This 102-nucleotide RNA from Heliobacterium mobile belongs to the Rfam family "pan motif".

RNA sequence: AAGGCUGUAUUCCAAUCUCGAUGGAAGCGGUACUUUCAAGACAGCAAAGCAAAAAUGCUAUCCAUUUCACCGCUUGGAGCCCCCUGGGACCGAGACGGAAGG
Numbered sequence: 001a002a003g004g005c006u007g008u009a010u011u012c013c014a015a016u017c018u019c020g021a022u023g024g025a026a027g028c029g030g031u032a033c034u035u036u037c038a039a040g041a042c043a044g045c046a047a048a049g050c051a052a053a054a055a056u057g058c059u060a061u062c063c064a065u066u067u068c069a070c071c072g073c074u075u076g077g078a079g080c081c082c083c084c085u086g087g088g089a090c091c092g093a094g095a096c097g098g099a100a101g102g
Base pairs, nucleotide, nucleotide: 001035002034003033004031005030006029007028008027010026011025012024013023014022070098071097072096073094074093075092076091077090080088081087
Source information:
It is annotated as a cis-regulatory element.